[Rfam]
RNA sequence: AGUUUAUGGUGAGGACAUGAAUGUAUUAGGUCAGAGAAUCUAUCCCAUGCUUCGGAAAAUGUCUCAUUUGGAUUCUGUUUGAAGAAUUGUAUCUUGCUUCUUAUCU
Numbered sequence: 001a002g003u004u005u006a007u008g009g010u011g012a013g014g015a016c017a018u019g020a021a022u023g024u025a026u027u028a029g030g031u032c033a034g035a036g037a038a039u040c041u042a043u044c045c046c047a048u049g050c051u052u053c054g055g056a057a058a059a060u061g062u063c064u065c066a067u068u069u070g071g072a073u074u075c076u077g078u079u080u081g082a083a084g085a086a087u088u089g090u091a092u093c094u095u096g097c098u099u100c101u102u103a104u105c106u
Base pairs, nucleotide, nucleotide: 001106004103006101057074058073060071

Record summary: A member of the RNA family "Plant small nucleolar RNA R71" from Coptis chinensis, 106 nucleotides long. Lineage of the source: Eukaryota > Streptophyta > Tracheophyta > Ranunculaceae > Coptis. Rfam links the family to the GO terms RNA processing and nucleolus. The family's RNA type in Rfam is C/D-box small nucleolar RNA.